Record summary: Rfam assigns this 133-nucleotide RNA sequence from Propithecus coquereli to the family "U11 spliceosomal RNA". Pairs were carried over by alignment from the consensus structure, which is taken from published work.
RNA sequence: AAAAAGGGCUUCUGUUGUGAGUGGCACACGUAGGGCAACUUGACUGCUCUUCGUGUGGAAUAGACAUCAAAAGAUUUUGGAAGCAUAAUUUUUGGUAUUUGGGCUGCUAGUGAUCGUUGGUUCCAGCACUCUU
Numbered sequence: 001a002a003a004a005a006g007g008g009c010u011u012c013u014g015u016u017g018u019g020a021g022u023g024g025c026a027c028a029c030g031u032a033g034g035g036c037a038a039c040u041u042g043a044c045u046g047c048u049c050u051u052c053g054u055g056u057g058g059a060a061u062a063g064a065c066a067u068c069a070a071a072a073g074a075u076u077u078u079g080g081a082a083g084c085a086u087a088a089u090u091u092u093u094g095g096u097a098u099u100u101g102g103g104c105u106g107c108u109a110g111u112g113a114u115c116g117u118u119g120g121u122u123c124c125a126g127c128a129c130u131c132u133u
Stems, first nucleotide, its partner, number of pairs: 008084005013026005027055004032050006056079006101131003106127003110123001112122004
The organism belongs to Propithecus, within Eukaryota.